[Rfam]
RNA sequence: UUAAAGUCAAUAACGAGAAAAAGUACGUAAAGAACCCUGUUCUCUAGAGAGUUGACGCUUGGUGAAAGUCGACGAACAGCCCUUAUCCGAAAAUCAUCUCCGAGAUGCAAAGCUGAAAAUUAGUAGGCUUUGACGGUUUUCCACCGUUACAUGGAGAACGUAUGGUAAAACGUUGACUGAGAGCCGUUUGUUUCUUAAUUAGAAACUUGCGGAAUAUGGGUGGAAUCGCGAGCAAAAACUCGUCCCUUUG
Numbered sequence: 001u002u003a004a005a006g007u008c009a010a011u012a013a014c015g016a017g018a019a020a021a022a023g024u025a026c027g028u029a030a031a032g033a034a035c036c037c038u039g040u041u042c043u044c045u046a047g048a049g050a051g052u053u054g055a056c057g058c059u060u061g062g063u064g065a066a067a068g069u070c071g072a073c074g075a076a077c078a079g080c081c082c083u084u085a086u087c088c089g090a091a092a093a094u095c096a097u098c099u100c101c102g103a104g105a106u107g108c109a110a111a112g113c114u115g116a117a118a119a120u121u122a123g124u125a126g127g128c129u130u131u132g133a134c135g136g137u138u139u140u141c142c143a144c145c146g147u148u149a150c151a152u153g154g155a156g157a158a159c160g161u162a163u164g165g166u167a168a169a170a171c172g173u174u175g176a177c178u179g180a181g182a183g184c185c186g187u188u189u190g191u192u193u194c195u196u197a198a199u200u201a202g203a204a205a206c207u208u209g210c211g212g213a214a215u216a217u218g219g220g221u222g223g224a225a226u227c228g229c230g231a232g233c234a235a236a237a238a239c240u241c242g243u244c245c246c247u248u249u250g
Stems, first nucleotide, its partner, number of pairs: 007105002015100004027087001029084002040076003051073006108132007134146003184212004190206006218246003228243005
Dot-bracket structure: ......((......((((........(.((.........(((........((((((...........)))))))))......))..).........))))...))..(((((((...........))))))).(((.......))).....................................((((..((((((.....))))))..)))).....(((.......(((((......))))))))....